[Rfam]
The record is a 75-nucleotide sequence from Natronorubrum sulfidifaciens, which matches "tRNA" in Rfam. The match comes from Rfam's covariance-model search (60 bits).

RNA sequence: GCUCCGAUAGUGUAGUCCGGCCAAUCAUAUUGCCCUCUCACGGCAAUGACCAGGGUUCGAAUCCCUGUCGGAGCA
Number, nucleotide and partner (000 for none) at each position: 001g074002c073003u072004c071005c070006g069007a068008u000009a000010g028011u027012g026013u000014a000015g000016u000017c000018c000019g000020g000021c000022c000023a000024a000025u000026c012027a011028u010029a000030u046031u045032g044033c043034c042035c000036u000037c000038u000039c000040a000041c000042g034043g033044c032045a031046a030047u000048g000049a000050c000051c067052a066053g065054g064055g063056u000057u000058c000059g000060a000061a000062u000063c055064c054065c053066u052067g051068u007069c006070g005071g004072a003073g002074c001075a000